[Rfam]
RNA sequence: AUAUAUAUAUAGGGGGUCAUUGUAGAAGCGUGCUCGUUGCGACCCCCUUCAGCCCUUUUCAGGGCUGCAAUUCUACA
Number, nucleotide and partner (000 for none) at each position: 001a000002u000003a000004u000005a000006u000007a000008u000009a000010u000011a000012g000013g046014g045015g044016g043017u042018c041019a000020u000021u077022g076023u075024a074025g073026a072027a071028g040029c039030g038031u000032g000033c000034u000035c000036g000037u000038u030039g029040c028041g018042a017043c016044c015045c014046c013047c000048u000049u000050c067051a066052g065053c064054c063055c062056u061057u000058u000059u000060c000061a056062g055063g054064g053065c052066u051067g050068c000069a000070a000071u027072u026073c025074u024075a023076c022077a021